Rfam assigns this 352-nucleotide RNA sequence from Mahella australiensis to the family "Bacterial RNase P class A". The family's RNA type in Rfam is ribozyme. Its family is annotated with dimeric ribonuclease P complex, tRNA processing and ribonuclease P activity in the Gene Ontology.
[Rfam]
RNA sequence: CAAGCAAGCUGGGUGAUCGCGUGUGCAGUUGUGCAUACGAGGAAAGUCCGAGCUCCAUAGGGCAGGAUGCCGGGUAAUGCCCGGUGGAGGCGACUCCAAGGAUAGUGCAACAGAAAUAGACUGCCGAUGGAUCCAUAAGAUCCAGGCGAUGGUGGAAAGGUGAGGUAAGAGCUCACCAGCAUCCAGGCGACUGGUUGGCUAUGUAAACCCCAUCUGGAGCAAGACAUAAUAGGAGGGACCAAAAUAGCGGCCCGCUAUUCCCUCGGGUGUAGUCGCUAGAGGCAUCAGGUAACUGAUGUCGUAGAUAGAUGAUCAUCCUAGACAGAACUCGGCUUAUAGGCUUGCUUGCGAA
Numbered sequence: 001c002a003a004g005c006a007a008g009c010u011g012g013g014u015g016a017u018c019g020c021g022u023g024u025g026c027a028g029u030u031g032u033g034c035a036u037a038c039g040a041g042g043a044a045a046g047u048c049c050g051a052g053c054u055c056c057a058u059a060g061g062g063c064a065g066g067a068u069g070c071c072g073g074g075u076a077a078u079g080c081c082c083g084g085u086g087g088a089g090g091c092g093a094c095u096c097c098a099a100g101g102a103u104a105g106u107g108c109a110a111c112a113g114a115a116a117u118a119g120a121c122u123g124c125c126g127a128u129g130g131a132u133c134c135a136u137a138a139g140a141u142c143c144a145g146g147c148g149a150u151g152g153u154g155g156a157a158a159g160g161u162g163a164g165g166u167a168a169g170a171g172c173u174c175a176c177c178a179g180c181a182u183c184c185a186g187g188c189g190a191c192u193g194g195u196u197g198g199c200u201a202u203g204u205a206a207a208c209c210c211c212a213u214c215u216g217g218a219g220c221a222a223g224a225c226a227u228a229a230u231a232g233g234a235g236g237g238a239c240c241a242a243a244a245u246a247g248c249g250g251c252c253c254g255c256u257a258u259u260c261c262c263u264c265g266g267g268u269g270u271a272g273u274c275g276c277u278a279g280a281g282g283c284a285u286c287a288g289g290u291a292a293c294u295g296a297u298g299u300c301g302u303a304g305a306u307a308g309a310u311g312a313u314c315a316u317c318c319u320a321g322a323c324a325g326a327a328c329u330c331g332g333c334u335u336a337u338a339g340g341c342u343u344g345c346u347u348g349c350g351a352a
Stems, first nucleotide, its partner, number of pairs: 001348010011337001012317007020039008044335003048332005053219004060253004065215005070084005085099001086097004100210002105208002107204003121151001123147003128144006159177006179199001180197002183194004223274003226270001233264006244258005281300008
Description:
Lineage of the source: Bacteria > Bacillati > Bacillota > Clostridia > Mahella australiensis.